[Rfam]
RNA sequence: GAGUCUUCUUUUAGGAGUCUUCGUAUAAGCCCGGAGAUUGGUCUGGGGGAUUCUACCAGGUGACCGGAAUCACCCUGGCUACGAAGGGUUAUUUCCUUUGU
Number, nucleotide and partner (000 for none) at each position: 001g000002a000003g000004u000005c000006u000007u000008c000009u000010u000011u000012u000013a000014g000015g000016a000017g000018u087019c086020u085021u084022c083023g082024u081025a080026u000027a000028a000029g000030c047031c046032c045033g044034g043035a042036g000037a000038u000039u000040g000041g000042u035043c034044u033045g032046g031047g030048g000049g000050a000051u000052u000053c000054u000055a000056c000057c077058a076059g075060g073061u072062g071063a070064c000065c000066g000067g000068a000069a000070u063071c062072a061073c060074c000075c059076u058077g057078g000079c000080u025081a024082c023083g022084a021085a020086g019087g018088g000089u000090u000091a000092u000093u000094u000095c000096c000097u000098u000099u000100g000101u000
Record summary
Rfam assigns this 101-nucleotide RNA sequence from Neomoorella thermoacetica to the family "Purine riboswitch aptamer". From the family's description: Riboswitches are metabolite binding domains within certain messenger RNAs that serve as precision sensors for their corresponding targets. Rfam links the family to the GO term purine nucleobase biosynthetic process. NCBI's taxonomy places the organism under Bacteria, Bacillati, Neomoorellales, Neomoorellaceae, Neomoorella.